[Rfam]
RNA sequence: AAAUUCUGGCAAUCGCUCCCGCACUUGAUGCGGGAGAGGAAAGUCCAUGCUCACACGGAUCUGCGAUGACCGUAGUGAUCGCGCUCAGCGAAACAAUAAGCUGGGGCAGCAGUAAUGCUGACGGCGGGUAGAACGCCUAAGUCUUCGGAUAUGGCCGAAAUACCCUGAAGGUGCCACAGUGACGGAGCUGUCUAGGAAACUAUGCAGGUGGAACGAGGUAAACCCCGCGAGUGAGAAACCCAAAUUAUGGUAGGGGCACUUUUCCAAGGGAAAUGAACCGACGGAAGAGGCGGAGUGAAUCCGCAGAUAGAUGAUUGCCAUCCGCUAGUACGAGGCUUUGGCUGUUUGAGUACGUGGAGACAAAACAUGGCUUAUAGAA
Numbered sequence: 001a002a003a004u005u006c007u008g009g010c011a012a013u014c015g016c017u018c019c020c021g022c023a024c025u026u027g028a029u030g031c032g033g034g035a036g037a038g039g040a041a042a043g044u045c046c047a048u049g050c051u052c053a054c055a056c057g058g059a060u061c062u063g064c065g066a067u068g069a070c071c072g073u074a075g076u077g078a079u080c081g082c083g084c085u086c087a088g089c090g091a092a093a094c095a096a097u098a099a100g101c102u103g104g105g106g107c108a109g110c111a112g113u114a115a116u117g118c119u120g121a122c123g124g125c126g127g128g129u130a131g132a133a134c135g136c137c138u139a140a141g142u143c144u145u146c147g148g149a150u151a152u153g154g155c156c157g158a159a160a161u162a163c164c165c166u167g168a169a170g171g172u173g174c175c176a177c178a179g180u181g182a183c184g185g186a187g188c189u190g191u192c193u194a195g196g197a198a199a200c201u202a203u204g205c206a207g208g209u210g211g212a213a214c215g216a217g218g219u220a221a222a223c224c225c226c227g228c229g230a231g232u233g234a235g236a237a238a239c240c241c242a243a244a245u246u247a248u249g250g251u252a253g254g255g256g257c258a259c260u261u262u263u264c265c266a267a268g269g270g271a272a273a274u275g276a277a278c279c280g281a282c283g284g285a286a287g288a289g290g291c292g293g294a295g296u297g298a299a300u301c302c303g304c305a306g307a308u309a310g311a312u313g314a315u316u317g318c319c320a321u322c323c324g325c326u327a328g329u330a331c332g333a334g335g336c337u338u339u340g341g342c343u344g345u346u347u348g349a350g351u352a353c354g355u356g357g358a359g360a361c362a363a364a365a366c367a368u369g370g371c372u373u374a375u376a377g378a379a
Stems, first nucleotide, its partner, number of pairs: 004379003008319007016036006041373003045370005050235005055073004060069002079230005084105006106122001107120005123225002126165004135155003141150003171223002173219003188207004193202003239255003259289007290304005321358005328353004